Rfam assigns this 113-nucleotide sequence from Streptomyces hoynatensis to the family "Streptomyces RNA 4115". Pairs were carried over by alignment from the consensus structure.
[Rfam]
RNA sequence: GCGUGGGUCGGCCCGCUGCCCUUGACGGAAUCGGCGGGCCGGGGGAAGCCGCCAUCUCAUUCCCCGCGGAUGGCGGCCUGGUCCGGGAGGCGACCAGCGCCUCCCGGACCACA
Numbered sequence: 001g002c003g004u005g006g007g008u009c010g011g012c013c014c015g016c017u018g019c020c021c022u023u024g025a026c027g028g029a030a031u032c033g034g035c036g037g038g039c040c041g042g043g044g045g046a047a048g049c050c051g052c053c054a055u056c057u058c059a060u061u062c063c064c065c066g067c068g069g070a071u072g073g074c075g076g077c078c079u080g081g082u083c084c085g086g087g088a089g090g091c092g093a094c095c096a097g098c099g100c101c102u103c104c105c106g107g108a109c110c111a112c113a
Base pairs, nucleotide, nucleotide: 001112006079007078009041010040011039012038013037014036015035016034017033018032049076050075051074052073053072054071055070056069057068080110081109082108083107084106085105086104087103088102089101090100091099092098
Dot-bracket structure: (....((.((((((((((.............)))))))))).......(((((((((..........))))))))).))(((((((((((((.....))))))))))))).).
Identified by deep sequencing of transcriptome at the end of exponential growth phase. Sequencing size consistent with notrthern blot size. Lineage of the source: Bacteria > Actinomycetota > Actinomycetes > Streptomycetaceae > Streptomyces.